Record summary:
This 84-nucleotide RNA from Lathyrus oleraceus belongs to the Rfam family "Small nucleolar RNA R38". From the family's description: snoR38 is a C/D box small nucleolar RNA conserved across yeast, human, Arabidopsis and rice. It is encoded in the intron of elongation factor-1 gamma in both pombe and cerevisiae. snoR38 guides the methylation of 2'-O-ribose sites in 28S rRNA. A reference for the family is Bachellerie et al. (1995), "Antisense snoRNAs: a family of nucleolar RNAs with long complementarities to rRNA", Trends Biochem Sci.
[Rfam]
RNA sequence: UGCCAUGAAUGAUGAGAUUAACAAUUUUACAGUUAUCCCUGUCUGAUAACCUAAUGCUGAAAUUGUAUAUGCUCUGACAUGCUA
Numbered sequence: 001u002g003c004c005a006u007g008a009a010u011g012a013u014g015a016g017a018u019u020a021a022c023a024a025u026u027u028u029a030c031a032g033u034u035a036u037c038c039c040u041g042u043c044u045g046a047u048a049a050c051c052u053a054a055u056g057c058u059g060a061a062a063u064u065g066u067a068u069a070u071g072c073u074c075u076g077a078c079a080u081g082c083u084a
Base pairs, nucleotide, nucleotide: 001084002083004081005080006079007078
Dot-bracket structure: ((.((((......................................................................)))).))
The organism belongs to Lathyrus, within Eukaryota.